About this RNA: A member of the RNA family "Fluoride riboswitch aptamer (crcB RNA motif)" from Beijerinckia sp. 28-YEA-48, 61 nucleotides long. The organism belongs to Beijerinckia, within Bacteria. The family's consensus secondary structure is taken from published work.
RNA sequence: GAUCGCGAUGGGGAUGGAGUCCCCCGAUACCCGCCGUAAGGCUGAUGACUCCUACUGCGAC
Numbered sequence: 001g002a003u004c005g006c007g008a009u010g011g012g013g014a015u016g017g018a019g020u021c022c023c024c025c026g027a028u029a030c031c032c033g034c035c036g037u038a039a040g041g042c043u044g045a046u047g048a049c050u051c052c053u054a055c056u057g058c059g060a061c
Stems, first nucleotide, its partner, number of pairs: 010025004016052006033042003